[Rfam]
This 80-nucleotide RNA sequence from Anabarilius grahami belongs to the Rfam family "mir-181 microRNA precursor family". The family's consensus secondary structure was predicted with PFOLD. A reference for the family is Lagos-Quintana et al. (2003), "New microRNAs from mouse and human", RNA. Lineage of the source: Eukaryota > Metazoa > Bilateria > Actinopteri > Anabarilius.

RNA sequence: GAGUCCUGAUUCACAUUCAUUGCUGUCGGUGGGUUUUUAUCUCUUUGACUCGCCGGACAAUGAAUGAGAACUAUGGCCCU
Numbered sequence: 001g002a003g004u005c006c007u008g009a010u011u012c013a014c015a016u017u018c019a020u021u022g023c024u025g026u027c028g029g030u031g032g033g034u035u036u037u038u039a040u041c042u043c044u045u046u047g048a049c050u051c052g053c054c055g056g057a058c059a060a061u062g063a064a065u066g067a068g069a070a071c072u073a074u075g076g077c078c079c080u
Base pairs, nucleotide, nucleotide: 001080003078004076005075007073008072014066015065016064017063018062019061020060021059022058026056027055028054029053030052031051033049034048035047